A member of the RNA family "ALIL pseudoknot" from Gordonia malaquae, 129 nucleotides long.
The family has 26 seed sequences and 2,146 matches in Rfam 15.1.
The source organism's lineage runs through Bacteria, Actinomycetota, Actinomycetes, Gordonia and Gordonia malaquae.
The family's consensus secondary structure is taken from published work.
RNA sequence: GGCUUUCUUUGCGGCGGAGCUCGACCGCCCACGCAGGUGAUCGUCGCGUUCAUCGACGAUCACCGUGAUCGCUGGGGUGUCGAGCCGAUCUGCACCGUCCUCACCGAGGCCGGCUGCCCGAUCGCCCCC
Numbered sequence: 001g002g003c004u005u006u007c008u009u010u011g012c013g014g015c016g017g018a019g020c021u022c023g024a025c026c027g028c029c030c031a032c033g034c035a036g037g038u039g040a041u042c043g044u045c046g047c048g049u050u051c052a053u054c055g056a057c058g059a060u061c062a063c064c065g066u067g068a069u070c071g072c073u074g075g076g077g078u079g080u081c082g083a084g085c086c087g088a089u090c091u092g093c094a095c096c097g098u099c100c101u102c103a104c105c106g107a108g109g110c111c112g113g114c115u116g117c118c119c120g121a122u123c124g125c126c127c128c129c
Stems, first nucleotide, its partner, number of pairs: 013029005075129003079125001086124002089121002092118001